[Rfam]
RNA sequence: CGCAUAUUUCGCCCAGGCGGAGCUCGACCGCCGACCCAAGCGAUGAUGGCCUUCAUCGAUGACCACAAGGAAGCUUACGGGGUCGAGCCGAUCUGCUCAGUCCUGCCGAUCGCCCCG
Dot-bracket structure: ...............(((((.......))))).............................................(((((......((.((.((........)).)).)))))))
Numbered sequence: 001c002g003c004a005u006a007u008u009u010c011g012c013c014c015a016g017g018c019g020g021a022g023c024u025c026g027a028c029c030g031c032c033g034a035c036c037c038a039a040g041c042g043a044u045g046a047u048g049g050c051c052u053u054c055a056u057c058g059a060u061g062a063c064c065a066c067a068a069g070g071a072a073g074c075u076u077a078c079g080g081g082g083u084c085g086a087g088c089c090g091a092u093c094u095g096c097u098c099a100g101u102c103c104u105g106c107c108g109a110u111c112g113c114c115c116c117g
Stems, first nucleotide, its partner, number of pairs: 016032005078117005089112002092109002095106002